RNA: Potassium channel RNA editing signal
Organism: Sarcophilus harrisii
RNA sequence: GUAGGUUAUGGGGAUAUGCACCCGGUGACCAUCGGGGGCAAGAUCGUGGGAUCGCUGUGUGCCAUCGCCGGUGUCCUGACGAUUGCCUUGCCGGUGCCCGUGAUCGUUUCCAAU
Numbered sequence: 001g002u003a004g005g006u007u008a009u010g011g012g013g014a015u016a017u018g019c020a021c022c023c024g025g026u027g028a029c030c031a032u033c034g035g036g037g038g039c040a041a042g043a044u045c046g047u048g049g050g051a052u053c054g055c056u057g058u059g060u061g062c063c064a065u066c067g068c069c070g071g072u073g074u075c076c077u078g079a080c081g082a083u084u085g086c087c088u089u090g091c092c093g094g095u096g097c098c099c100g101u102g103a104u105c106g107u108u109u110c111c112a113a114u
Base pairs, nucleotide, nucleotide: 001114002113004111005110008107009106010105011104014101015100018097019096020095021094037077038076040074049063050062